This 157-nucleotide sequence from Rhizobium sp. BK275 belongs to the Rfam family "speF leader". Its family is annotated with regulation of gene expression in the Gene Ontology. Pairs were carried over by alignment from the consensus structure, which was predicted with RNAalifold. This family is a putative regulatory RNA structure that is found upstream of the speF gene encoding ornithine decarboxylase in Agrobacterium tumefaciens and other alpha-proteobacteria.

[Rfam]
RNA sequence: UCCCUGCUUUCCAUCAGCGGGGGUUACUGAAGAGGCACACCUUCAUUGCCGGAAGUGCGGCAGGGAUAUUCCCUCCAAUCCAUGGCAGACAAAGCCGAACCUAUACCGCAUUUGCGGCGUUGGUUCAUUACUUGCGCGUCGAGCGUCGUCAAGGAUC
Numbered sequence: 001u002c003c004c005u006g007c008u009u010u011c012c013a014u015c016a017g018c019g020g021g022g023g024u025u026a027c028u029g030a031a032g033a034g035g036c037a038c039a040c041c042u043u044c045a046u047u048g049c050c051g052g053a054a055g056u057g058c059g060g061c062a063g064g065g066a067u068a069u070u071c072c073c074u075c076c077a078a079u080c081c082a083u084g085g086c087a088g089a090c091a092a093a094g095c096c097g098a099a100c101c102u103a104u105a106c107c108g109c110a111u112u113u114g115c116g117g118c119g120u121u122g123g124u125u126c127a128u129u130a131c132u133u134g135c136g137c138g139u140c141g142a143g144c145g146u147c148g149u150c151a152a153g154g155a156u157c
Stems, first nucleotide, its partner, number of pairs: 001023008034050004057137003084096002107119003